Shown here is a 561-nucleotide RNA from Saccharomyces mikatae, a member of the family "Small nucleolar RNA snR84". Gene Ontology terms of the family: nucleolus and RNA processing. The family's RNA type in Rfam is H/ACA-box small nucleolar RNA. Pairs were carried over by alignment from the consensus structure, which was predicted with WAR.
RNA sequence: AUUGCACAACUUAAGUUUGUCGAGGAUCGUUUUUUUAAACUGAAUCUUGCUCUUUUUUGGCGCUUGAAACCCUCGAUGAAUGUGUCAAUGUGCAAAGAUAAAAUAUUGUUCUCUGUUGAUCAGUGAUUUUGGCUUUGCUUUGGAGAAGUAUCUUUUCCCUUUCCCAUAAUUGACUUUUGUCCUAAAAGUUGUUCGGAGAGAAUAAGCAUAGUUGAAGUUGCGACUUUUUAUUUUUUUUUUGCUUUUGCAUGGAUACCAUAUCUAUGCACGUCUCAUGUUUAUUGGACCUUCAACAUUGGUUUUUCCUUCUGUUUUGAGGUUAAUAUUUUUUUCUCUACUUUUGAUAUGUCACAUAUUAAUACCGAUUAUGUUCUUAAUUUCCUCAUCGCUGUUGUUUUAAUUCGACUCAUUUGAGUUCUUCAUUUGUGUUUGGUUGGAUAUUCAGUUUGAGGUAAACAACAUAGUUGGUAUGUGCAGGAAAUGAUUGAAAAUCACAUGAACAUCUGGGUGAUCGUACAGAAGUGAAAAUACCUGAGGCAGUUUUGUACAAAAAAGAAGCUA
Numbered sequence: 001a002u003u004g005c006a007c008a009a010c011u012u013a014a015g016u017u018u019g020u021c022g023a024g025g026a027u028c029g030u031u032u033u034u035u036u037a038a039a040c041u042g043a044a045u046c047u048u049g050c051u052c053u054u055u056u057u058u059g060g061c062g063c064u065u066g067a068a069a070c071c072c073u074c075g076a077u078g079a080a081u082g083u084g085u086c087a088a089u090g091u092g093c094a095a096a097g098a099u100a101a102a103a104u105a106u107u108g109u110u111c112u113c114u115g116u117u118g119a120u121c122a123g124u125g126a127u128u129u130u131g132g133c134u135u136u137g138c139u140u141u142g143g144a145g146a147a148g149u150a151u152c153u154u155u156u157c158c159c160u161u162u163c164c165c166a167u168a169a170u171u172g173a174c175u176u177u178u179g180u181c182c183u184a185a186a187a188g189u190u191g192u193u194c195g196g197a198g199a200g201a202a203u204a205a206g207c208a209u210a211g212u213u214g215a216a217g218u219u220g221c222g223a224c225u226u227u228u229u230a231u232u233u234u235u236u237u238u239u240u241g242c243u244u245u246u247g248c249a250u251g252g253a254u255a256c257c258a259u260a261u262c263u264a265u266g267c268a269c270g271u272c273u274c275a276u277g278u279u280u281a282u283u284g285g286a287c288c289u290u291c292a293a294c295a296u297u298g299g300u301u302u303u304u305c306c307u308u309c310u311g312u313u314u315u316g317a318g319g320u321u322a323a324u325a326u327u328u329u330u331u332u333c334u335c336u337a338c339u340u341u342u343g344a345u346a347u348g349u350c351a352c353a354u355a356u357u358a359a360u361a362c363c364g365a366u367u368a369u370g371u372u373c374u375u376a377a378u379u380u381c382c383u384c385a386u387c388g389c390u391g392u393u394g395u396u397u398u399a400a401u402u403c404g405a406c407u408c409a410u411u412u413g414a415g416u417u418c419u420u421c422a423u424u425u426g427u428g429u430u431u432g433g434u435u436g437g438a439u440a441u442u443c444a445g446u447u448u449g450a451g452g453u454a455a456a457c458a459a460c461a462u463a464g465u466u467g468g469u470a471u472g473u474g475c476a477g478g479a480a481a482u483g484a485u486u487g488a489a490a491a492u493c494a495c496a497u498g499a500a501c502a503u504c505u506g507g508g509u510g511a512u513c514g515u516a517c518a519g520a521a522g523u524g525a526a527a528a529u530a531c532c533u534g535a536g537g538c539a540g541u542u543u544u545g546u547a548c549a550a551a552a553a554a555g556a557a558g559c560u561a
Stems, first nucleotide, its partner, number of pairs: 015081003020076006027043003030039003045067002049063002052060002123221001126218008136208005142158007159200006171191009236528011247267008297516002302511002305508001310502005325485003329481006336474001342358007360470013378455002381452005388446004396438007404430003408426002412422004539560006